[Rfam]
RNA sequence: CGCUCCGGUGCCGUCGGCGACUGAAAGGCGAAGAACCCCCGAGGGAAAGAACCCCUGCCAAGCCCCACCCCUCCCGCCCGCGUCCCGUGCUCACUCGCGCGGGUGAACCUCCCCGGACCGGCUGGAUUUCGCGGCCCUCGAGGCCCGACGCUCAGCCCAACGCACCACCACAACCGCAGACAUGCGACGGCCCCCGCCGGGACGGCAAUCCCAGUGCGAGGGCCUGACCACCGAGGAAGAUAGAGGCUUCCCG
Numbered sequence: 001c002g003c004u005c006c007g008g009u010g011c012c013g014u015c016g017g018c019g020a021c022u023g024a025a026a027g028g029c030g031a032a033g034a035a036c037c038c039c040c041g042a043g044g045g046a047a048a049g050a051a052c053c054c055c056u057g058c059c060a061a062g063c064c065c066c067a068c069c070c071c072u073c074c075c076g077c078c079c080g081c082g083u084c085c086c087g088u089g090c091u092c093a094c095u096c097g098c099g100c101g102g103g104u105g106a107a108c109c110u111c112c113c114c115g116g117a118c119c120g121g122c123u124g125g126a127u128u129u130c131g132c133g134g135c136c137c138u139c140g141a142g143g144c145c146c147g148a149c150g151c152u153c154a155g156c157c158c159a160a161c162g163c164a165c166c167a168c169c170a171c172a173a174c175c176g177c178a179g180a181c182a183u184g185c186g187a188c189g190g191c192c193c194c195c196g197c198c199g200g201g202a203c204g205g206c207a208a209u210c211c212c213a214g215u216g217c218g219a220g221g222g223c224c225u226g227a228c229c230a231c232c233g234a235g236g237a238a239g240a241u242a243g244a245g246g247c248u249u250c251c252c253g
Base pairs, nucleotide, nucleotide: 007232008231009230010229016078017077018076019075091106092105093104094103095102096101121161123154124153125152189224190223191222192221193220195218196217197216199212200211201210202209235251236250237249238248239247

Rfam assigns this 253-nucleotide RNA sequence from Streptomyces viridochromogenes to the family "Streptomyces sRNA 4677". Lineage of the source: Bacteria > Actinomycetes > Streptomycetaceae > Streptomyces > Streptomyces viridochromogenes. From the family's description: Located in the intergenic region between anti-sigma factor SCO4677 gene and a putative regulatory protein gene SCO4676. scr4677 expression requires the SCO4677 activity and scr4677 sRNA itself seem to affect the levels of the SCO4676-associated transcripts.